This 68-nucleotide RNA sequence from Segniliparus rugosus belongs to the Rfam family "ASdes TB sRNA". The source organism's lineage runs through Bacteria, Bacillati, Actinomycetota, Segniliparaceae and Segniliparus rugosus. The base pairs follow the family's consensus structure, which is taken from published work.
RNA sequence: AGCUCGACCGGGUCGAUGGCGCGGGUGGUGAGGAGGUAGUCGCGGAUCGCGAUGGAGUGCCGGUUCUC
Numbered sequence: 001a002g003c004u005c006g007a008c009c010g011g012g013u014c015g016a017u018g019g020c021g022c023g024g025g026u027g028g029u030g031a032g033g034a035g036g037u038a039g040u041c042g043c044g045g046a047u048c049g050c051g052a053u054g055g056a057g058u059g060c061c062g063g064u065u066c067u068c
Base pairs, nucleotide, nucleotide: 004063005062006061008059012029013028016026017025037054038053040052041051042050043049044048